[Rfam]
RNA sequence: AACCCGUGAUGAGGACAAUCUCUCUGAUAUCCCUUGAACCUUUCCCACACAGCUUUGAAAGAUUCCGUCAGAUUCUGAACGAACGUUGAGAUCUUAGCUCGUAGAU
Numbered sequence: 001a002a003c004c005c006g007u008g009a010u011g012a013g014g015a016c017a018a019u020c021u022c023u024c025u026g027a028u029a030u031c032c033c034u035u036g037a038a039c040c041u042u043u044c045c046c047a048c049a050c051a052g053c054u055u056u057g058a059a060a061g062a063u064u065c066c067g068u069c070a071g072a073u074u075c076u077g078a079a080c081g082a083a084c085g086u087u088g089a090g091a092u093c094u095u096a097g098c099u100c101g102u103a104g105a106u
Stems, first nucleotide, its partner, number of pairs: 001106001003104001005101002057074002
This 106-nucleotide sequence from Arabis alpina belongs to the Rfam family "Plant small nucleolar RNA R71". It scores 44 bits against the family's covariance model. The organism belongs to Arabis, within Eukaryota. It is annotated as a C/D-box small nucleolar RNA. Pairs were carried over by alignment from the consensus structure, which was predicted with PFOLD. Its family is annotated with RNA processing and nucleolus in the Gene Ontology. The literature on the family includes a 2003 paper in Trends Plant Sci by Brown et al., "Plant snoRNAs: functional evolution and new modes of gene expression".